[Rfam]
RNA sequence: GCAGACUCACUCUGUACUUGACUGCCUUCCUCAGUCUUGCUGCUUUUCCAGUCUGCUAGAGAAGCGCCCCACGGUGUUGCAAACCCCUUUCUCUAGUGAAAGGCCUCUGCAACUGCCUGGGAAACACCCAC
Numbered sequence: 001g002c003a004g005a006c007u008c009a010c011u012c013u014g015u016a017c018u019u020g021a022c023u024g025c026c027u028u029c030c031u032c033a034g035u036c037u038u039g040c041u042g043c044u045u046u047u048c049c050a051g052u053c054u055g056c057u058a059g060a061g062a063a064g065c066g067c068c069c070c071a072c073g074g075u076g077u078u079g080c081a082a083a084c085c086c087c088u089u090u091c092u093c094u095a096g097u098g099a100a101a102g103g104c105c106u107c108u109g110c111a112a113c114u115g116c117c118u119g120g121g122a123a124a125c126a127c128c129c130a131c
Stems, first nucleotide, its partner, number of pairs: 001056006014043003017039001020036001022034003068121004073117003076113006086103003
Notes
This 131-nucleotide sequence from Monodelphis domestica belongs to the Rfam family "Small nucleolar RNA SNORA77". A search with the family's covariance model found it, with a score of 54 bits. About the family: ACA63 (SNORA77) is a member of the H/ACA class of snoRNAs that guide the sites of modification of uridines to pseudouridines. This snoRNA was identified by computational screening and its expression in mouse experimentally verified by Northern blot and primer extension analysis. ACA63 is proposed to guide the pseudouridylation of 18S rRNA U814. Gene Ontology terms of the family: nucleolus and RNA processing. Rfam classes the family as an H/ACA-box small nucleolar RNA. Rfam 15.1 lists 843 matches to the family in 607 species. Pairs were carried over by alignment from the consensus structure, which was predicted with RNAalifold.